[Rfam]
RNA: mir-1 microRNA precursor family
Organism: Apolygus lucorum
RNA sequence: UACACGCACCUCCACUUCAUUACAGUUAAUAAAAUAUACAUAUUUUAUUAACUGUAAUGAAGUGGAGGUGUGAUGU
Numbered sequence: 001u002a003c004a005c006g007c008a009c010c011u012c013c014a015c016u017u018c019a020u021u022a023c024a025g026u027u028a029a030u031a032a033a034a035u036a037u038a039c040a041u042a043u044u045u046u047a048u049u050a051a052c053u054g055u056a057a058u059g060a061a062g063u064g065g066a067g068g069u070g071u072g073a074u075g076u
Base pairs, nucleotide, nucleotide: 007070008069009068010067011066012065013064014063015062016061017060018059019058020057021056022055023054024053025052027050028049029048030047031046